MIR1435 microRNA precursor family: a 201-nucleotide RNA sequence from Sorghum bicolor. A search with the family's covariance model found it, with a score of 99 bits. Rfam 15.1 lists 1,765 matches to the family in 31 species.
[Rfam]
RNA sequence: UGGUUUUGUCCCAAGUCAAACUUAUCUAACUUUGACCAAGUUUAUAGAAAAAUAUGUUGACAUCAAUAAUACCAAAAUAAGUGCACUAUCAAUAUAUUUCAUGGUGGAUUUAAUGAAUCUAAUUUGAUUUUGUAGAUGUUGGUGAUUUUUCCUAUAAACUUGGUCAAAGUUAUUGAAAUGUUUGACUUAUGACAAAAAUAA
Numbered sequence: 001u002g003g004u005u006u007u008g009u010c011c012c013a014a015g016u017c018a019a020a021c022u023u024a025u026c027u028a029a030c031u032u033u034g035a036c037c038a039a040g041u042u043u044a045u046a047g048a049a050a051a052a053u054a055u056g057u058u059g060a061c062a063u064c065a066a067u068a069a070u071a072c073c074a075a076a077a078u079a080a081g082u083g084c085a086c087u088a089u090c091a092a093u094a095u096a097u098u099u100c101a102u103g104g105u106g107g108a109u110u111u112a113a114u115g116a117a118u119c120u121a122a123u124u125u126g127a128u129u130u131u132g133u134a135g136a137u138g139u140u141g142g143u144g145a146u147u148u149u150u151c152c153u154a155u156a157a158a159c160u161u162g163g164u165c166a167a168a169g170u171u172a173u174u175g176a177a178a179u180g181u182u183u184g185a186c187u188u189a190u191g192a193c194a195a196a197a198a199u200a201a
Stems, first nucleotide, its partner, number of pairs: 005196005013188009023178001025176002031168005045154003049150004055144003059140006066133003073126004